[Rfam]
RNA: 7SK RNA
Organism: Phaethon lepturus
RNA sequence: GGAUGUGAGGGCAAUCUGACUGCAACGUCUGUCACCCCAUUGAUCACCAGGGUUGAUUCGGCUGUUCUGGCUGGCUAGGCAGGUGUCCCCUUUCAUGCUCACUGCUCUAUGUGCGUCCCUCCCAAAGCUGUACACUCGGUCGAAGAGGACAACCUACCCCAAUAGAGACAUAGCGUUCAUUGGUUAAGGGUAUACAGUAGCUGUGCUCCCCUGAUAGAAUCUCCAAACAAGCUCAAGGUCCAUUUAUUUUAAAUCAGAGAGGAAAAAAAAGAAAAAAAAAUGGGGACAGACUUUUUAGCAGGGCCUGUUGCAAUAGGA
Numbered sequence: 001g002g003a004u005g006u007g008a009g010g011g012c013a014a015u016c017u018g019a020c021u022g023c024a025a026c027g028u029c030u031g032u033c034a035c036c037c038c039a040u041u042g043a044u045c046a047c048c049a050g051g052g053u054u055g056a057u058u059c060g061g062c063u064g065u066u067c068u069g070g071c072u073g074g075c076u077a078g079g080c081a082g083g084u085g086u087c088c089c090c091u092u093u094c095a096u097g098c099u100c101a102c103u104g105c106u107c108u109a110u111g112u113g114c115g116u117c118c119c120u121c122c123c124a125a126a127g128c129u130g131u132a133c134a135c136u137c138g139g140u141c142g143a144a145g146a147g148g149a150c151a152a153c154c155u156a157c158c159c160c161a162a163u164a165g166a167g168a169c170a171u172a173g174c175g176u177u178c179a180u181u182g183g184u185u186a187a188g189g190g191u192a193u194a195c196a197g198u199a200g201c202u203g204u205g206c207u208c209c210c211c212u213g214a215u216a217g218a219a220u221c222u223c224c225a226a227a228c229a230a231g232c233u234c235a236a237g238g239u240c241c242a243u244u245u246a247u248u249u250u251a252a253a254u255c256a257g258a259g260a261g262g263a264a265a266a267a268a269a270a271g272a273a274a275a276a277a278a279a280a281u282g283g284g285g286a287c288a289g290a291c292u293u294u295u296u297a298g299c300a301g302g303g304c305c306u307g308u309u310g311c312a313a314u315a316g317g318a
Stems, first nucleotide, its partner, number of pairs: 001108003005102005011096001013093002018090001025086009035074002037070003042067002045064001047061002119167003122139002125136001127135001140162001142160001147158002202266001206262002209259001211257004222251001227247001229245003292318003296313001298311003301306001